[Rfam]
RNA sequence: GCGCUCGUAGUGAAGCUGGUCUAUCACGCCUCCCUGUCACGGAGGAGAUCGCCGGUUCGAAUCCGGUCGGGCGCG
Numbered sequence: 001g002c003g004c005u006c007g008u009a010g011u012g013a014a015g016c017u018g019g020u021c022u023a024u025c026a027c028g029c030c031u032c033c034c035u036g037u038c039a040c041g042g043a044g045g046a047g048a049u050c051g052c053c054g055g056u057u058c059g060a061a062u063c064c065g066g067u068c069g070g071g072c073g074c075g
Stems, first nucleotide, its partner, number of pairs: 001074007010027004029045005051067005
RNA: tRNA